RNA sequence: ACAGUCUUAAAAUCCCUUGUGGUCUCCUAUGGCCCCGGGUGCCAUAACUGUGCCAACAGCAGAGGGAGCAUUAAACUCAUUGCCCACGCUAAAGGGUGGGGAGUGAUAUCCAUGUUCCUAGAAUC
Numbered sequence: 001a002c003a004g005u006c007u008u009a010a011a012a013u014c015c016c017u018u019g020u021g022g023u024c025u026c027c028u029a030u031g032g033c034c035c036c037g038g039g040u041g042c043c044a045u046a047a048c049u050g051u052g053c054c055a056a057c058a059g060c061a062g063a064g065g066g067a068g069c070a071u072u073a074a075a076c077u078c079a080u081u082g083c084c085c086a087c088g089c090u091a092a093a094g095g096g097u098g099g100g101g102a103g104u105g106a107u108a109u110c111c112a113u114g115u116u117c118c119u120a121g122a123a124u125c
Stems, first nucleotide, its partner, number of pairs: 006050001010045001014041001016039001021034004065118001067116005077106005085098003